[Rfam]
RNA: isrB Hfq binding RNA
RNA sequence: AAAAGCACCCCGAUAUAUCAGGUUGUUGGGUCCGGUUCGCUUUGGUCGGUGACACCGGAUGGGCAGCCCACUUAGGUGGGCUUUUU
Numbered sequence: 001a002a003a004a005g006c007a008c009c010c011c012g013a014u015a016u017a018u019c020a021g022g023u024u025g026u027u028g029g030g031u032c033c034g035g036u037u038c039g040c041u042u043u044g045g046u047c048g049g050u051g052a053c054a055c056c057g058g059a060u061g062g063g064c065a066g067c068c069c070a071c072u073u074a075g076g077u078g079g080g081c082u083u084u085u086u
Stems, first nucleotide, its partner, number of pairs: 010022002012019002030060007037052002065083001066081006